[Rfam]
RNA sequence: GGAGCUAUUUCGCGGGAAAUAGUUGAUAAAGAUGAACCCGCGCGCUUGAUCGAUGCAAUGAAACAACGGGUUCCAGUCAAACAUGGCCAACAUGAAGGAAGGCAGUGUGUUAGCGACGAACAUCUUGCCAGAUGCAAUCAUGUUGGCCCGUUG
Numbered sequence: 001g002g003a004g005c006u007a008u009u010u011c012g013c014g015g016g017a018a019a020u021a022g023u024u025g026a027u028a029a030a031g032a033u034g035a036a037c038c039c040g041c042g043c044g045c046u047u048g049a050u051c052g053a054u055g056c057a058a059u060g061a062a063a064c065a066a067c068g069g070g071u072u073c074c075a076g077u078c079a080a081a082c083a084u085g086g087c088c089a090a091c092a093u094g095a096a097g098g099a100a101g102g103c104a105g106u107g108u109g110u111u112a113g114c115g116a117c118g119a120a121c122a123u124c125u126u127g128c129c130a131g132a133u134g135c136a137a138u139c140a141u142g143u144u145g146g147c148c149c150g151u152u153g
Base pairs, nucleotide, nucleotide: 004033006032008030009029013025014024015023039055040054041052042051064153065152066151067150068149070082071081072080086147087146088145089144090143091142092141093140094139099133102129103127104126105125107123108122110119111118